The record is a 225-nucleotide sequence from Natribacillus halophilus, which matches "Group II catalytic intron D1-D4-6" in Rfam. Lineage of the source: Bacteria > Bacillati > Bacilli > Bacillaceae > Natribacillus. The base pairs follow the family's consensus structure. Rfam links the family to the GO term Group II intron splicing.
RNA sequence: AGAACCCUGCUUGAUAAGGCUCUAACCAAGCCAUCAAUAGCGAGUCUUGGUCUCAGUUGAGUAAUCAACUGGGUUAAGCGUAGACAGUUAGGUCGUAGGCCUGAAAGUGAUUGAGCCUCGUAAAUAGUUAAAACGGGGAGGUUGACGGUGUCGAAAGACUGGAAAACGAUACGCCGUAUGUCGUUAUCGGUGAGGUAUACGGAGCUCCCUCGGGGUCGGAGAGCC
Number, nucleotide and partner (000 for none) at each position: 001a000002g000003a000004a000005c000006c000007c000008u000009g000010c000011u000012u036013g035014a034015u033016a000017a000018g000019g031020c030021u029022c000023u193024a000025a191026c190027c000028a000029a021030g020031c019032c000033a015034u014035c013036a012037a000038u090039a089040g088041c087042g000043a000044g085045u084046c083047u082048u080049g079050g075051u000052c073053u072054c071055a070056g069057u068058u067059g066060a065061g000062u000063a000064a000065u060066c059067a058068a057069c056070u055071g054072g053073g052074u000075u050076a000077a000078g000079c049080g048081u000082a047083g046084a045085c044086a000087g041088u040089u039090a038091g000092g000093u000094c000095g000096u000097a000098g000099g000100c000101c000102u000103g000104a000105a000106a000107g000108u000109g000110a000111u000112u219113g217114a000115g216116c215117c214118u213119c212120g211121u000122a000123a000124a000125u000126a000127g000128u000129u000130a000131a000132a000133a000134c000135g210136g209137g208138g207139a206140g205141g167142u166143u165144g000145a000146c161147g160148g159149u158150g000151u000152c000153g000154a000155a000156a000157g000158a149159c148160u147161g146162g000163a000164a000165a143166a142167c141168g000169a000170u000171a000172c204173g000174c202175c201176g200177u199178a198179u197180g196181u195182c194183g000184u000185u000186a000187u000188c000189g000190g026191u025192g000193a023194g182195g181196u180197a179198u178199a177200c176201g175202g174203a000204g172205c140206u139207c138208c137209c136210u135211c120212g119213g118214g117215g116216u115217c113218g000219g112220a000221g000222a000223g000224c000225c000